RNA sequence: CUGUCUCCCAAUGCAAGUAAUCGAGGGUAGGCCAGGUGGAGUGUAAACAGCCUAUCCUGGAUUACUUGAACCGGGCAACAA
Numbered sequence: 001c002u003g004u005c006u007c008c009c010a011a012u013g014c015a016a017g018u019a020a021u022c023g024a025g026g027g028u029a030g031g032c033c034a035g036g037u038g039g040a041g042u043g044u045a046a047a048c049a050g051c052c053u054a055u056c057c058u059g060g061a062u063u064a065c066u067u068g069a070a071c072c073g074g075g076c077a078a079c080a081a
Base pairs, nucleotide, nucleotide: 002080003079004078007075008074009073012070014068015067016066017065018064019063020062021061022060024058025057026056027055028054029053030052031051032050
The family of this 81-nucleotide sequence from Aquarana catesbeiana is "mir-26 microRNA precursor family". The literature on the family includes a 2001 paper in Science by Lagos-Quintana et al., "Identification of novel genes coding for small expressed RNAs". Gene Ontology terms of the family: miRNA-mediated post-transcriptional gene silencing and RISC complex.